Annotation: A member of the RNA family "c-di-AMP riboswitch aptamer (ydaO/yuaA leader)" from Gordonia crocea, 196 nucleotides long. Its family is annotated with regulation of gene expression and cyclic-di-AMP binding in the Gene Ontology.

RNA sequence: CCAGCCGCGCCGCCCGAACAACAGAAUUCAGGAAUGAGGACGGGGGACCCAACCUCUCCCGUGAGAACGGGUUUCAGCCGAUACCGUCGGCCGGAAUCCUCGGGGUGUAGCCGCACCGAUACCCGUAUCACCGCGGCCGGGCAACCUCUCGCUCGAACCCGACAGCUGACUUCGUAGGCGCGUGGAGAGAGGAAAA
Numbered sequence: 001c002c003a004g005c006c007g008c009g010c011c012g013c014c015c016g017a018a019c020a021a022c023a024g025a026a027u028u029c030a031g032g033a034a035u036g037a038g039g040a041c042g043g044g045g046g047a048c049c050c051a052a053c054c055u056c057u058c059c060c061g062u063g064a065g066a067a068c069g070g071g072u073u074u075c076a077g078c079c080g081a082u083a084c085c086g087u088c089g090g091c092c093g094g095a096a097u098c099c100u101c102g103g104g105g106u107g108u109a110g111c112c113g114c115a116c117c118g119a120u121a122c123c124c125g126u127a128u129c130a131c132c133g134c135g136g137c138c139g140g141g142c143a144a145c146c147u148c149u150c151g152c153u154c155g156a157a158c159c160c161g162a163c164a165g166c167u168g169a170c171u172u173c174g175u176a177g178g179c180g181c182g183u184g185g186a187g188a189g190a191g192g193a194a195a196a
Stems, first nucleotide, its partner, number of pairs: 004179003040175006050102001103160003111136004139154004
Dot-bracket structure: ...(((.................................((((((....(...................................................)(((.....((((..................))))..((((........))))...))).........)))))).))).................
About the family: This family represents a conserved RNA structure found upstream of the ydaO and yuaA genes in Bacillus subtilis and related genes in other bacteria. The base pairs follow the family's consensus structure. Lineage of the source: Bacteria > Actinomycetota > Mycobacteriales > Gordoniaceae > Gordonia.